[Rfam]
RNA sequence: CAUUAUAUAGGCGAUGGAGUUCGCCGUAUAACCGCCGCGAGGCUAAUGACUCCUACCAGAGA
Numbered sequence: 001c002a003u004u005a006u007a008u009a010g011g012c013g014a015u016g017g018a019g020u021u022c023g024c025c026g027u028a029u030a031a032c033c034g035c036c037g038c039g040a041g042g043c044u045a046a047u048g049a050c051u052c053c054u055a056c057c058a059g060a061g062a
Stems, first nucleotide, its partner, number of pairs: 010025004016053006034043003
RNA: Fluoride riboswitch aptamer (crcB RNA motif)
Organism: Paenibacillus aquistagni